[Rfam]
RNA sequence: AAAGAAAAAGGGAAUGAAGUUCUCCCUCGAAGAGAUUCGAAACCGCUUAUUAAGCUGAUGACUUCUGUGCGAUG
Numbered sequence: 001a002a003a004g005a006a007a008a009a010g011g012g013a014a015u016g017a018a019g020u021u022c023u024c025c026c027u028c029g030a031a032g033a034g035a036u037u038c039g040a041a042a043c044c045g046c047u048u049a050u051u052a053a054g055c056u057g058a059u060g061a062c063u064u065c066u067g068u069g070c071g072a073u074g
Stems, first nucleotide, its partner, number of pairs: 010026004016065006045055003

Source information:
This 74-nucleotide RNA from Clostridium sp. SS2/1 belongs to the Rfam family "Fluoride riboswitch aptamer (crcB RNA motif)". Pairs were carried over by alignment from the consensus structure, which is taken from published work.